[Rfam]
A member of the RNA family "t44 RNA" from Vibrio genomosp. F10, 123 nucleotides long. A search with the family's covariance model found it, with a score of 74 bits. This family consists of a number of bacterial RNA genes of between 135 and 170 bases in length. It is annotated as a small RNA.
RNA sequence: CUCACUUUAAUUUAAUUCACACACAUUCCGACACAUGUUCCGGGGUGCCUCAACUGUCAAACUAUCUGUGCUUAAACAAAUAGAUGUUAGGGGUCGGAGUCAUGGGGAGUGUGGAGGCCUAAC
Number, nucleotide and partner (000 for none) at each position: 001c000002u000003c000004a000005c000006u000007u000008u000009a000010a000011u000012u000013u000014a000015a000016u000017u000018c000019a000020c000021a000022c113023a112024c111025a110026u109027u108028c107029c106030g000031a000032c000033a000034c104035a103036u102037g101038u000039u098040c097041c096042g095043g000044g000045g000046u000047g094048c093049c092050u091051c090052a000053a000054c000055u000056g000057u000058c000059a000060a000061a000062c000063u000064a000065u000066c000067u000068g000069u000070g000071c000072u000073u000074a000075a000076a000077c000078a000079a000080a000081u000082a000083g000084a000085u000086g000087u000088u000089a000090g051091g050092g049093g048094u047095c042096g041097g040098a039099g000100u000101c037102a036103u035104g034105g000106g029107g028108a027109g026110u025111g024112u023113g022114g000115a000116g000117g000118c000119c000120u000121a000122a000123c000